[Rfam]
RNA sequence: UAAAAGGGUCGGUUGGCUAAAUAUGCCAUGCUCACCCUUGAUUGGUGAGCGCCGUAUGGAUAUCAAGACAUAUGGCCGACAUAAUUUGUGGGACUUCAUAGGGUUGGCUCGCCUGGCCGACCCUCCG
Numbered sequence: 001u002a003a004a005a006g007g008g009u010c011g012g013u014u015g016g017c018u019a020a021a022u023a024u025g026c027c028a029u030g031c032u033c034a035c036c037c038u039u040g041a042u043u044g045g046u047g048a049g050c051g052c053c054g055u056a057u058g059g060a061u062a063u064c065a066a067g068a069c070a071u072a073u074g075g076c077c078g079a080c081a082u083a084a085u086u087u088g089u090g091g092g093a094c095u096u097c098a099u100a101g102g103g104u105u106g107g108c109u110c111g112c113c114u115g116g117c118c119g120a121c122c123c124u125c126c127g
Base pairs, nucleotide, nucleotide: 008080009079010078011077012076014028015027016026017025029051030050031049032048033047034046035045036044052075053074054073055072056071057070058069100124101123102122103121104120105119106118107117109116

Background:
U11 spliceosomal RNA: a 127-nucleotide RNA from Rosa chinensis. A search with the family's covariance model found it, with a score of 74 bits. Rfam classes the family as a spliceosomal small nuclear RNA. The base pairs follow the family's consensus structure, which is taken from published work.